[Rfam]
RNA sequence: UUGCGAUGAUGAAAGUCCACGCUAUGAGCUCCCUGUUUCGUGCCAGAGCCCGCAAGGGAGAACCCACUGGUGCUGGCAGGGGGUAAAGAGAUAUCUUGUCUUCUGGACAGUCUGAGCAAC
Numbered sequence: 001u002u003g004c005g006a007u008g009a010u011g012a013a014a015g016u017c018c019a020c021g022c023u024a025u026g027a028g029c030u031c032c033c034u035g036u037u038u039c040g041u042g043c044c045a046g047a048g049c050c051c052g053c054a055a056g057g058g059a060g061a062a063c064c065c066a067c068u069g070g071u072g073c074u075g076g077c078a079g080g081g082g083g084u085a086a087a088g089a090g091a092u093a094u095c096u097u098g099u100c101u102u103c104u105g106g107a108c109a110g111u112c113u114g115a116g117c118a119a120c
Stems, first nucleotide, its partner, number of pairs: 001119004
RNA: Small nucleolar RNA SNORD22